Shown here is a 116-nucleotide sequence from Priestia veravalensis, a member of the family "Guanidine-I riboswitch aptamer". It scores 63 bits against the family's covariance model. Rfam links the family to the GO term regulation of gene expression. The organism belongs to Priestia, within Bacteria. The base pairs follow the family's consensus structure.

RNA sequence: AAAAAGUAAAUCUAGGUUCCCGCUUUUCAUCAUGAAAAGGUCUGGUCCAAGCGAUUUACAUGCUUAAUGUUUUCGACAGAACGGCAUGACACCGAAGGGAUAAAAGCCCAGGCGGG
Numbered sequence: 001a002a003a004a005a006g007u008a009a010a011u012c013u014a015g016g017u018u019c020c021c022g023c024u025u026u027u028c029a030u031c032a033u034g035a036a037a038a039g040g041u042c043u044g045g046u047c048c049a050a051g052c053g054a055u056u057u058a059c060a061u062g063c064u065u066a067a068u069g070u071u072u073u074c075g076a077c078a079g080a081a082c083g084g085c086a087u088g089a090c091a092c093c094g095a096a097g098g099g100a101u102a103a104a105a106g107c108c109c110a111g112g113c114g115g116g
Base pairs, nucleotide, nucleotide: 007058008057009056010055011054012053015048016047020045021044022042023039024038025037026036027035028034059088060087061086062085063084064083090111092114097109098108099107